Record summary:
A member of the RNA family "Alphaproteobacteria transfer-messenger RNA" from Novosphingobium malaysiense, 359 nucleotides long. On this family, see Mao et al., RNA Biol 2010: "Variations on the tmRNA gene". The base pairs follow the family's consensus structure, which is taken from published work.
RNA sequence: UCACUUCACAUUCAGGCUCGAUCGCCUAUAUGGGACAGUGCCGGUUCGCCGGCUAUGACGAUAAAUUGCGACGUGCAAUAGACGCAGCGGACCCGGGGGCGGUACCCGGCGGCUCCACCAUCACCCGUUCCGUAUGGAACGCCCUGUUGUCGCAGGGGUGAUGACGGGGCCGAACUAGGAUCGACGUGUGUUGAAAAGCGGCGUUUUCGUCCGGGCUGAGUAACCCGUUCAAGGCUCAAAACUCAUAAGUGCCAACGACAACGAAGCACUCGCUCUCGCUGCGUAAUUCUAGGGGCUAACGCCCUGAAGUUACAAAGCUAAAGCGCGGUUGGACCCACCGGGCAACAGAAGCGGAUUCC
Numbered sequence: 001u002c003a004c005u006u007c008a009c010a011u012u013c014a015g016g017c018u019c020g021a022u023c024g025c026c027u028a029u030a031u032g033g034g035a036c037a038g039u040g041c042c043g044g045u046u047c048g049c050c051g052g053c054u055a056u057g058a059c060g061a062u063a064a065a066u067u068g069c070g071a072c073g074u075g076c077a078a079u080a081g082a083c084g085c086a087g088c089g090g091a092c093c094c095g096g097g098g099g100c101g102g103u104a105c106c107c108g109g110c111g112g113c114u115c116c117a118c119c120a121u122c123a124c125c126c127g128u129u130c131c132g133u134a135u136g137g138a139a140c141g142c143c144c145u146g147u148u149g150u151c152g153c154a155g156g157g158g159u160g161a162u163g164a165c166g167g168g169g170c171c172g173a174a175c176u177a178g179g180a181u182c183g184a185c186g187u188g189u190g191u192u193g194a195a196a197a198g199c200g201g202c203g204u205u206u207u208c209g210u211c212c213g214g215g216c217u218g219a220g221u222a223a224c225c226c227g228u229u230c231a232a233g234g235c236u237c238a239a240a241a242c243u244c245a246u247a248a249g250u251g252c253c254a255a256c257g258a259c260a261a262c263g264a265a266g267c268a269c270u271c272g273c274u275c276u277c278g279c280u281g282c283g284u285a286a287u288u289c290u291a292g293g294g295g296c297u298a299a300c301g302c303c304c305u306g307a308a309g310u311u312a313c314a315a316a317g318c319u320a321a322a323g324c325g326c327g328g329u330u331g332g333a334c335c336c337a338c339c340g341g342g343c344a345a346c347a348g349a350a351g352c353g354g355a356u357u358c359c
Stems, first nucleotide, its partner, number of pairs: 040053005057211005068204003072200003083190003087187003093109005110172007212227004217238003326340004331357002334354002